[Rfam]
RNA sequence: CCCUCUGGCUGAGUUAGUGAUCGGCUAGAGAUUCAUAUUAUUUAUUUGGAGAUAUACAUGUCACUAAGUACUGAAGUAAAAGCAAAAAUUUUGGCUGAUUUUGGCCGUUGUGAA
Number, nucleotide and partner (000 for none) at each position: 001c000002c000003c000004u000005c000006u000007g026008g025009c024010u023011g022012a021013g000014u000015u000016a000017g000018u000019g000020a000021u012022c011023g010024g009025c008026u007027a000028g000029a000030g000031a000032u000033u000034c000035a000036u000037a000038u000039u000040a000041u000042u000043u000044a000045u068046u067047u066048g065049g064050a000051g062052a000053u000054a000055u000056a000057c000058a000059u000060g000061u000062c051063a000064c049065u048066a047067a046068g045069u000070a000071c000072u000073g000074a000075a000076g000077u000078a000079a000080a000081a000082g000083c000084a000085a000086a000087a000088a000089u000090u000091u000092u000093g000094g000095c000096u000097g000098a000099u000100u000101u000102u000103g000104g000105c000106c000107g000108u000109u000110g000111u000112g000113a000114a000
The family of this 114-nucleotide RNA from Shewanella baltica is "Ribosomal S15 leader". The family's consensus secondary structure is taken from published work. The literature on the family includes a 1996 paper in Biochimie by Benard et al., "Pseudoknot and translational control in the expression of the S15 ribosomal protein". The E. coli Ribosomal S15 gene 5' UTR can form two alternative structures. One that is a series of three hairpins, The other includes a pseudoknot. Rfam links the family to the GO term regulation of translation, ncRNA-mediated. The source organism's lineage runs through Bacteria, Pseudomonadati, Gammaproteobacteria, Alteromonadales and Shewanella baltica.